Notes:
A member of the RNA family "Lysine riboswitch aptamer", 164 nucleotides long. The match comes from Rfam's covariance-model search (30 bits). Gene Ontology term of the family: lysine biosynthetic process.
RNA sequence: GAUGUACGCCGUCAUGUCGAAAGGAAGGCCGUGGAGGAUCAUGAUGCCGUUGACGCGGCGAGAGGGCGGCUUGUCGAGGCGAAACAAUUGUUGGAUCGCUCGAUGGGCAAAGUGGUGGAAUGUCACUUUGACCUGUCACAUACAUAUAUGUGACGAUGUGACGA
Numbered sequence: 001g002a003u004g005u006a007c008g009c010c011g012u013c014a015u016g017u018c019g020a021a022a023g024g025a026a027g028g029c030c031g032u033g034g035a036g037g038a039u040c041a042u043g044a045u046g047c048c049g050u051u052g053a054c055g056c057g058g059c060g061a062g063a064g065g066g067c068g069g070c071u072u073g074u075c076g077a078g079g080c081g082a083a084a085c086a087a088u089u090g091u092u093g094g095a096u097c098g099c100u101c102g103a104u105g106g107g108c109a110a111a112g113u114g115g116u117g118g119a120a121u122g123u124c125a126c127u128u129u130g131a132c133c134u135g136u137c138a139c140a141u142a143c144a145u146a147u148a149u150g151u152g153a154c155g156a157u158g159u160g161a162c163g164a
Stems, first nucleotide, its partner, number of pairs: 006159003010155002013073002016070004028059006078104001080102003085098001087096003105134002108130008136153007